[Rfam]
RNA sequence: GAGGUUUGAAAAAACUGACCUAAGACAGUAGGGGAGCUGGACUCAUAAACAUCCUACCGAGGCACAAAACGAUUAUUGAGAUAAACGUAUUUGUACUUUCGUGUCUAGGUUUAGGUGCGAUUUUUUUGUGCCUAG
Numbered sequence: 001g002a003g004g005u006u007u008g009a010a011a012a013a014a015c016u017g018a019c020c021u022a023a024g025a026c027a028g029u030a031g032g033g034g035a036g037c038u039g040g041a042c043u044c045a046u047a048a049a050c051a052u053c054c055u056a057c058c059g060a061g062g063c064a065c066a067a068a069a070c071g072a073u074u075a076u077u078g079a080g081a082u083a084a085a086c087g088u089a090u091u092u093g094u095a096c097u098u099u100c101g102u103g104u105c106u107a108g109g110u111u112u113a114g115g116u117g118c119g120a121u122u123u124u125u126u127u128g129u130g131c132c133u134a135g
Stems, first nucleotide, its partner, number of pairs: 028057006034044003099120009
Ribosomal protein L10 leader: a 135-nucleotide RNA sequence from Streptococcus suis. The source organism's lineage runs through Bacteria, Bacillota, Bacilli, Lactobacillales and Streptococcus suis. This family is a putative r-protein leader autoregulatory structure found in B. subtilis and other low-GC Gram-positive bacteria. It is located in the 5' untranslated regions of mRNAs encoding ribosomal proteins L10 and L12 (rplJ-rplL).